Histone 3' UTR stem-loop: a 45-nucleotide sequence from Mesorhabditis spiculigera.

RNA sequence: CCAACGGCCCUCUUUAGGGCCACAAAUCAAUUAAAAAUAUUUGUA
Number, nucleotide and partner (000 for none) at each position: 001c000002c000003a000004a000005c000006g021007g020008c019009c018010c017011u016012c000013u000014u000015u000016a011017g010018g009019g008020c007021c006022a000023c000024a000025a000026a000027u000028c000029a000030a000031u000032u000033a000034a000035a000036a000037a000038u000039a000040u000041u000042u000043g000044u000045a000

The organism belongs to Mesorhabditis, within Eukaryota.